[Rfam]
Staphylococcus sRNA 414: a 175-nucleotide sequence from Staphylococcus aureus. About the family: Antisense of an annotated CDS (SAOUHSC_1422) but was considered an trans-encoded sRNA rather than a typical antisense RNA. Target prediction revealed enrichment of iron-coding genes and genes with function in cofator metabolism. It is annotated as a small RNA.
RNA sequence: AUUUUUUAACUUGAGCAUCUUUUAAUCCUUUACCAGUUAAAUGUAUCACUUGAUAUUGUUGUAAUAAUGCAUCUAAGUUUUCGCGAAUAAUGCUAUUUAAUUUUUUACUUCCUAAGCUUCCACCCAUAACGAGUAAAACUUUUUUAUUUUCAUUAAAGCCUGUUAAUUGAUAACC
Numbered sequence: 001a002u003u004u005u006u007u008a009a010c011u012u013g014a015g016c017a018u019c020u021u022u023u024a025a026u027c028c029u030u031u032a033c034c035a036g037u038u039a040a041a042u043g044u045a046u047c048a049c050u051u052g053a054u055a056u057u058g059u060u061g062u063a064a065u066a067a068u069g070c071a072u073c074u075a076a077g078u079u080u081u082c083g084c085g086a087a088u089a090a091u092g093c094u095a096u097u098u099a100a101u102u103u104u105u106u107a108c109u110u111c112c113u114a115a116g117c118u119u120c121c122a123c124c125c126a127u128a129a130c131g132a133g134u135a136a137a138a139c140u141u142u143u144u145u146a147u148u149u150u151c152a153u154u155a156a157a158g159c160c161u162g163u164u165a166a167u168u169g170a171u172a173a174c175c
Base pairs, nucleotide, nucleotide: 017171018170019169022166023165024164025163026162028158029157030156031155032154036065037064038063039062043056044055045054046053047052069093070092071091072090077084078083103138104137105136106135107134108133109132110131